[Rfam]
RNA sequence: GGUGGGGCACAGGAUCCUGGGUUGUGUCCCCUGGCGUCCUGGGCUCCGGGGCCUGCGCCGCUGGUAUCGUGCUCACCAGGGCUGAGCAGCCCCCU
Numbered sequence: 001g002g003u004g005g006g007g008c009a010c011a012g013g014a015u016c017c018u019g020g021g022u023u024g025u026g027u028c029c030c031c032u033g034g035c036g037u038c039c040u041g042g043g044c045u046c047c048g049g050g051g052c053c054u055g056c057g058c059c060g061c062u063g064g065u066a067u068c069g070u071g072c073u074c075a076c077c078a079g080g081g082c083u084g085a086g087c088a089g090c091c092c093c094c095u
Stems, first nucleotide, its partner, number of pairs: 001095002004092003010086001012083002016080002019077001020074002023071004028064001031063001032060006041053001043052003